The family of this 54-nucleotide RNA from Cutibacterium granulosum is "msiK RNA".
The match comes from Rfam's covariance-model search (52 bits).
RNA sequence: GUCUGAACUUCCACUCGGAUCGUCGGGCACGUACCUGCCCGUGGAAAGGAUUAA
Number, nucleotide and partner (000 for none) at each position: 001g000002u000003c000004u000005g000006a000007a000008c048009u047010u045011c044012c043013a042014c000015u000016c000017g000018g000019a000020u000021c000022g000023u000024c041025g040026g039027g038028c037029a036030c000031g000032u000033a000034c000035c000036u029037g028038c027039c026040c025041g024042u013043g012044g011045a010046a000047a009048g008049g000050a000051u000052u000053a000054a000
NCBI's taxonomy places the organism under Bacteria, Actinomycetota, Propionibacteriales, Propionibacteriaceae, Cutibacterium granulosum.